About this RNA
The record is a 210-nucleotide sequence from Sphingomonas sp. IBVSS2, which matches "permuted transfer-messenger RNA" in Rfam. The base pairs follow the family's consensus structure, which is taken from published work. It is annotated as a non-coding RNA gene.

[Rfam]
RNA sequence: GGGGAUAAACGACGGCGUGCAAUAGGCGCAGCGGACCCGGGGGCGGUACCCGGCGGCUCCACCACCAGCUACCUGCCAAGGCAGUUGAUGACGGGGCCGAACUAGGAUCGACGUGUGUUGAAAAGCGCUGACUAUCUCUCGGCCUGGGCCACCGUGACGGUCUGAAACACAAGUGCCAACGAUAACGAAGCACUCGCUAUUGCGGCGUAA
Numbered sequence: 001g002g003g004g005a006u007a008a009a010c011g012a013c014g015g016c017g018u019g020c021a022a023u024a025g026g027c028g029c030a031g032c033g034g035a036c037c038c039g040g041g042g043g044c045g046g047u048a049c050c051c052g053g054c055g056g057c058u059c060c061a062c063c064a065c066c067a068g069c070u071a072c073c074u075g076c077c078a079a080g081g082c083a084g085u086u087g088a089u090g091a092c093g094g095g096g097c098c099g100a101a102c103u104a105g106g107a108u109c110g111a112c113g114u115g116u117g118u119u120g121a122a123a124a125g126c127g128c129u130g131a132c133u134a135u136c137u138c139u140c141g142g143c144c145u146g147g148g149c150c151a152c153c154g155u156g157a158c159g160g161u162c163u164g165a166a167a168c169a170c171a172a173g174u175g176c177c178a179a180c181g182a183u184a185a186c187g188a189a190g191c192a193c194u195c196g197c198u199a200u201u202g203c204g205g206c207g208u209a210a
Stems, first nucleotide, its partner, number of pairs: 001139005015128004027117003031114003037053005054099007140154003